[Rfam]
RNA: Small nucleolar RNA SNORD59
Organism: Microcaecilia unicolor
RNA sequence: CCUUCACUGAUGAUUUGACAUUGACUUUCGUUCUUCUGAGUUUGCUGAAGUCAGCAAUUUGUUCUGAGAAGG
Dot-bracket structure: (((.(..............................................................).)))